[Rfam]
RNA sequence: ACUCGGGCACGAUCCGGGCCCGGUGCGAUCCCAUGAUGCACGCCGCUCAACGCGUCGUAAAGCAAGGGGCCGCAACCCAUGACGCCCGGAAGCGACCCGUAGUUCAAUCCUGAGGGA
Numbered sequence: 001a002c003u004c005g006g007g008c009a010c011g012a013u014c015c016g017g018g019c020c021c022g023g024u025g026c027g028a029u030c031c032c033a034u035g036a037u038g039c040a041c042g043c044c045g046c047u048c049a050a051c052g053c054g055u056c057g058u059a060a061a062g063c064a065a066g067g068g069g070c071c072g073c074a075a076c077c078c079a080u081g082a083c084g085c086c087c088g089g090a091a092g093c094g095a096c097c098c099g100u101a102g103u104u105c106a107a108u109c110c111u112g113a114g115g116g117a
Stems, first nucleotide, its partner, number of pairs: 001103003004099004013090007022077002
Description:
The record is a 117-nucleotide sequence from Corynebacterium xerosis, which matches "L31-Corynebacteriaceae ribosomal protein leader" in Rfam. The sequence is in the family's curated seed alignment. The source organism's lineage runs through Bacteria, Actinomycetota, Mycobacteriales, Corynebacteriaceae and Corynebacterium. The family's RNA type in Rfam is cis-regulatory leader. The base pairs follow the family's consensus structure, which is taken from published work.